[Rfam]
RNA sequence: AUUUAUCGCUUCUAGGGUUCCGAUCGAGCCUCAAUCAGAAAUGGAUGGCUUGAUGACUGGUCCGAGAGAAGCAGGCUGUUUGGCGCAAUGCAGACAGUUACACGGCGGGACAAAAGCCCGGGAGAG
Number, nucleotide and partner (000 for none) at each position: 001a000002u000003u000004u000005a000006u000007c000008g072009c071010u070011u069012c068013u000014a000015g063016g062017g000018u000019u000020c060021c059022g057023a054024u053025c052026g051027a050028g049029c048030c047031u000032c000033a000034a000035u000036c000037a000038g000039a000040a000041a000042u000043g000044g000045a000046u000047g030048g029049c028050u027051u026052g025053a024054u023055g000056a000057c022058u000059g021060g020061u000062c016063c015064g000065a000066g000067a000068g012069a011070a010071g009072c008073a000074g099075g098076c097077u096078g095079u094080u093081u092082g000083g000084c000085g000086c000087a000088a000089u000090g000091c000092a081093g080094a079095c078096a077097g076098u075099u074100a000101c121102a000103c124104g000105g000106c000107g119108g118109g117110a000111c000112a000113a000114a000115a000116g000117c109118c108119c107120g000121g101122g000123a000124g103125a000126g000
RNA: Guanidine-I riboswitch aptamer
Organism: Leptolyngbyaceae cyanobacterium LF-bin-113